[Rfam]
RNA sequence: GUUCGUCUGAGCGAACGCAAACAGGCCAUUAAGCUCAGAGCGUUCACUGGAUUCGUCCAGUGAGAUUGGC
Numbered sequence: 001g002u003u004c005g006u007c008u009g010a011g012c013g014a015a016c017g018c019a020a021a022c023a024g025g026c027c028a029u030u031a032a033g034c035u036c037a038g039a040g041c042g043u044u045c046a047c048u049g050g051a052u053u054c055g056u057c058c059a060g061u062g063a064g065a066u067u068g069g070c
Base pairs, nucleotide, nucleotide: 001016002015003014004013006039007038008037009036010035011034025070026069027068028067033041043064044063045062046061047060048059049058050057